Shown here is a 69-nucleotide RNA, a member of the family "tRNA".
It is annotated as a transfer RNA.

[Rfam]
RNA sequence: GAGGCCUUAGCUUAAUUAAAGCGUCUGAUUUGCAUUCAGGAGAUACAGGUUAAUGUCCUGUUGGUCUUA
Numbered sequence: 001g002a003g004g005c006c007u008u009a010g011c012u013u014a015a016u017u018a019a020a021g022c023g024u025c026u027g028a029u030u031u032g033c034a035u036u037c038a039g040g041a042g043a044u045a046c047a048g049g050u051u052a053a054u055g056u057c058c059u060g061u062u063g064g065u066c067u068u069a
Base pairs, nucleotide, nucleotide: 001068002067003066004065005064006063010022011021012020013019024040025039026038027037028036045061046060047059048058049057
Dot-bracket structure: ((((((...((((.....)))).(((((.......)))))....(((((.......))))).)))))).